[Rfam]
RNA sequence: GUGGGAUACGGCGAUCAAUACCCACUAAAUGCCUCUGGUAAAAUGGUGGGUUGUCUGUUGACCAUUUUUGGCGUUUUAAUCAUUGCUCUUCCAGUUUUCCUCUUUGUCGCUAAC
Numbered sequence: 001g002u003g004g005g006a007u008a009c010g011g012c013g014a015u016c017a018a019u020a021c022c023c024a025c026u027a028a029a030u031g032c033c034u035c036u037g038g039u040a041a042a043a044u045g046g047u048g049g050g051u052u053g054u055c056u057g058u059u060g061a062c063c064a065u066u067u068u069u070g071g072c073g074u075u076u077u078a079a080u081c082a083u084u085g086c087u088c089u090u091c092c093a094g095u096u097u098u099c100c101u102c103u104u105u106g107u108c109g110c111u112a113a114c
Stems, first nucleotide, its partner, number of pairs: 001114002004111002008107004013102002018097001020095002037077002040074001049063003